[Rfam]
RNA sequence: UCCAUUCUAAAAGCGCCUGGACUAUUUCCGAAAACGGAUUGGGAGAUAGUUGACGAGGAGGAGGUUCAUCGAGAAUCGGCGGAUGCCUCCCGGCUGACGUACUUCAGCUGAUACGUACUCCCCUGAAAACAAAGAGGUGACUCUUUGCACAAGGGUGGAUACAAAGUACAAC
Numbered sequence: 001u002c003c004a005u006u007c008u009a010a011a012a013g014c015g016c017c018u019g020g021a022c023u024a025u026u027u028c029c030g031a032a033a034a035c036g037g038a039u040u041g042g043g044a045g046a047u048a049g050u051u052g053a054c055g056a057g058g059a060g061g062a063g064g065u066u067c068a069u070c071g072a073g074a075a076u077c078g079g080c081g082g083a084u085g086c087c088u089c090c091c092g093g094c095u096g097a098c099g100u101a102c103u104u105c106a107g108c109u110g111a112u113a114c115g116u117a118c119u120c121c122c123c124u125g126a127a128a129a130c131a132a133a134g135a136g137g138u139g140a141c142u143c144u145u146u147g148c149a150c151a152a153g154g155g156u157g158g159a160u161a162c163a164a165a166g167u168a169c170a171a172c
Base pairs, nucleotide, nucleotide: 020051021050022049023048024047025046026045027044029042060090061089062088063087064086069079070078071077072076091110092109093108094107095106096105115162116161117160119159120158121157130147131146132145133144134143135142136141
Shown here is a 172-nucleotide RNA sequence from Pontibacillus halophilus, a member of the family "glmS glucosamine-6-phosphate activated ribozyme aptamer".
Pairs were carried over by alignment from the consensus structure, which is taken from published work.
Taxonomically the source falls in Pontibacillus halophilus (Bacteria, Bacillati, Bacilli, Bacillaceae).
On this family, see Jansen et al., Nat Struct Mol Biol 2006: "Backbone and nucleobase contacts to glucosamine-6-phosphate in the glmS ribozyme".